[Rfam]
Mammalian CPEB3 ribozyme: a 75-nucleotide RNA from Alligator sinensis. The base pairs follow the family's consensus structure, which is taken from published work. From the family's description: The mammalian CPEB3 ribozyme is a self cleaving RNA located in the second intron of the CPEB3 gene which belongs to a family of genes regulating messenger RNA polyadenylation. This ribozyme is highly conserved and found only in mammals. The CPEB3 ribozyme is structurally and biochemically related to the human hepatitis delta virus (HDV) ribozyme and the HDV ribozyme is proposed to have arisen from the human transcriptome. There is currently only one other known self cleaving ribozyme in mammals, the CoTC motif. NCBI's taxonomy places the organism under Eukaryota, Archelosauria, Crocodylia, Alligatorinae, Alligator.

RNA sequence: UUGCUAGUUCAAGGGCAUAGCAGAAGCACUCAUAGCGCGACCCUGUCAGAUUCUAACAAAUCUGCAAACUAUGCU
Numbered sequence: 001u002u003g004c005u006a007g008u009u010c011a012a013g014g015g016c017a018u019a020g021c022a023g024a025a026g027c028a029c030u031c032a033u034a035g036c037g038c039g040a041c042c043c044u045g046u047c048a049g050a051u052u053c054u055a056a057c058a059a060a061u062c063u064g065c066a067a068a069c070u071a072u073g074c075u
Stems, first nucleotide, its partner, number of pairs: 013043003016039001019075004024070001026038002047064006